Shown here is a 128-nucleotide RNA from Cyprinus carpio, a member of the family "U4atac minor spliceosomal RNA". Pairs were carried over by alignment from the consensus structure, which is taken from published work. The source organism's lineage runs through Eukaryota, Euteleostomi, Cypriniphysae, Cyprinoidei and Cyprinus carpio. It scores 74 bits against the family's covariance model. Rfam classes the family as a spliceosomal small nuclear RNA. The family has 61 seed sequences and 1,648 matches in Rfam 15.1. Rfam links the family to the GO terms mRNA 5'-splice site recognition, spliceosomal tri-snRNP complex assembly and U4atac snRNP.
RNA sequence: ACUUUCCCUGUCAGGGGGUUGAGAACUGUUCAAUAAGCAUAUAGUGAGAGCAGACGUGCUAACACCAUAUCAACACAAUUGCAUCACCUGACUUCUAGAAGACAGAUAAUGGUGCAAUUUUUGGAAAU
Numbered sequence: 001a002c003u004u005u006c007c008c009u010g011u012c013a014g015g016g017g018g019u020u021g022a023g024a025a026c027u028g029u030u031c032a033a034u035a036a037g038c039a040u041a042u043a044g045u046g047a048g049a050g051c052a053g054a055c056g057u058g059c060u061a062a063c064a065c066c067a068u069a070u071c072a073a074c075a076c077a078a079u080u081g082c083a084u085c086a087c088c089u090g091a092c093u094u095c096u097a098g099a100a101g102a103c104a105g106a107u108a109a110u111g112g113u114g115c116a117a118u119u120u121u122u123g124g125a126a127a128u
Stems, first nucleotide, its partner, number of pairs: 006018004021059001023057001026053006037045002081115006089106001093102002